U4 spliceosomal RNA: a 121-nucleotide RNA from Crocodylus porosus. A search with the family's covariance model found it, with a score of 51 bits. Rfam describes the family as follows. U4 small nuclear RNA (U4 snRNA) is a component of the major U2-dependent spliceosome. On this family, see Zwieb, Nucleic Acids Res 1997: "The uRNA database". Pairs were carried over by alignment from the consensus structure, which is taken from published work. It is annotated as a spliceosomal small nuclear RNA.
[Rfam]
RNA sequence: UUACAUGCGCAGUGGCAAUAUGGUAGUCUGUGAGGUUGAACUGAGGCACGAUCAUUACUAGUUGAAAACUUGUUUCUCCAAGUGAGAGAGAUUCACUGUUAUUUCAUUUGUUUCCUAUAGG
Numbered sequence: 001u002u003a004c005a006u007g008c009g010c011a012g013u014g015g016c017a018a019u020a021u022g023g024u025a026g027u028c029u030g031u032g033a034g035g036u037u038g039a040a041c042u043g044a045g046g047c048a049c050g051a052u053c054a055u056u057a058c059u060a061g062u063u064g065a066a067a068a069c070u071u072g073u074u075u076c077u078c079c080a081a082g083u084g085a086g087a088g089a090g091a092u093u094c095a096c097u098g099u100u101a102u103u104u105c106a107u108u109u110g111u112u113u114c115c116u117a118u119a120g121g
Base pairs, nucleotide, nucleotide: 020052021051023049024048026047027046028045034042035041036040080104081103082102083101084100085099087097088096090094114121115120